[Rfam]
RNA sequence: CAUUUUAAGAGGCGUAUAUUAACAAAUAUACUACAGUCGGACGUUUGUGCCAACAUAUAUACUACACUGUACCAAAAAUAUACUACACUUGCUUCAAAAUAUACUACAACUCCGUUUCAAUAUAACGACACUUUCGUAAAACGGUCUAAAAAUAUGGAAGUAUAUGAGGUAAAUACACGUUUUAAAAACGCUACGAUUUU
Numbered sequence: 001c002a003u004u005u006u007a008a009g010a011g012g013c014g015u016a017u018a019u020u021a022a023c024a025a026a027u028a029u030a031c032u033a034c035a036g037u038c039g040g041a042c043g044u045u046u047g048u049g050c051c052a053a054c055a056u057a058u059a060u061a062c063u064a065c066a067c068u069g070u071a072c073c074a075a076a077a078a079u080a081u082a083c084u085a086c087a088c089u090u091g092c093u094u095c096a097a098a099a100u101a102u103a104c105u106a107c108a109a110c111u112c113c114g115u116u117u118c119a120a121u122a123u124a125a126c127g128a129c130a131c132u133u134u135c136g137u138a139a140a141a142c143g144g145u146c147u148a149a150a151a152a153u154a155u156g157g158a159a160g161u162a163u164a165u166g167a168g169g170u171a172a173a174u175a176c177a178c179g180u181u182u183u184a185a186a187a188a189c190g191c192u193a194c195g196a197u198u199u200u
Base pairs, nucleotide, nucleotide: 008192009191011189014031015030016029017028018027019026020025036054037053039051040050041048042047135179136178137177144170145169146168147167152163153162154161155160